[Rfam]
Nucleotides: 084
Stems, first nucleotide, its partner, number of pairs: 008078001010076007018068001020066003024062001026060004034052003039047002
Number, partner (000 for none) and nucleotide at each position: 001000u002000u003000a004000a005000c006000u007000c008078a009000c010076a011075u012074u013073u014072g015071u016070a017000u018068g019000g020066a021065g022064u023000u024062g025000c026060a027059a028058c029057g030000u031000u032000u033000g034052c035051c036050u037000a038000c039047g040046u041000u042000u043000g044000c045000c046040g047039c048000u049000a050036g051035g052034g053000g054000c055000g056000c057029u058028g059027u060026u061000c062024c063000c064022a065021c066020u067000g068018c069000a070016u071015a072014c073013a074012a075011a076010u077000u078008u079000g080000a081000g082000u083000u084000u